[Rfam]
RNA sequence: GCCAUAUGAUGUAUGUGAAUUCUCAUGAACGUUGUGUGAUGCUGACAUGUAUCUAUCACCCAAUGGCUGAUGGCU
Numbered sequence: 001g002c003c004a005u006a007u008g009a010u011g012u013a014u015g016u017g018a019a020u021u022c023u024c025a026u027g028a029a030c031g032u033u034g035u036g037u038g039a040u041g042c043u044g045a046c047a048u049g050u051a052u053c054u055a056u057c058a059c060c061c062a063a064u065g066g067c068u069g070a071u072g073g074c075u
Stems, first nucleotide, its partner, number of pairs: 001074004029037001030034001

The record is a 75-nucleotide sequence from Eleutherodactylus coqui, which matches "Small nucleolar RNA SNORD83" in Rfam. Taxonomically the source falls in Eleutherodactylus (Eukaryota, Gnathostomata, Teleostomi, Dipnotetrapodomorpha). The base pairs follow the family's consensus structure, which was predicted with PFOLD. A search with the family's covariance model found it, with a score of 46 bits. The family's RNA type in Rfam is C/D-box small nucleolar RNA. Rfam 15.1 lists 1,393 matches to the family in 644 species. Its family is annotated with nucleolus and RNA processing in the Gene Ontology.